[Rfam]
RNA sequence: UUGGGGAGUAGCUACCCGCUUCAGGUGGGGCCAUCGUCAACACGCUUGAUCCUUCAGGAUCGUGGCGGUGGCAGCAAACGGACGUUUGCCCAGCAAGACCAAUGACGCUGCAUUCCGCUUUGAGGCCGGGGGUGCGUGCGUUAUUUGGUUAUCGGCCCCCGAGAUU
Dot-bracket structure: ...............(((.......))).((((((((((.......(((((......)))))))))))))))...((.(...................................................................................).))
RNA: Manganese Mn2+ riboswitch aptamer (yybP-ykoY)